[Rfam]
Source information:
The record is a 91-nucleotide RNA sequence from Nicotiana tabacum, which matches "MIR6152 microRNA precursor family" in Rfam.
RNA sequence: UGGAGUGACACAUGAUUGUAUUCACGGCGUGAAAUAGGGGAUUACACUGUUUUUAAAACGGAAAGUGAAUCAAUUAACAUAAUAGACUCCU
Dot-bracket structure: .(((....((...((.((.((((((..((((((((((.........)))))))....)))....)))))))).))....)....)..))).
Lineage of the source: Eukaryota > Streptophytina > Embryophyta > Nicotianoideae > Nicotiana. The base pairs follow the family's consensus structure, which was predicted with RNAalifold.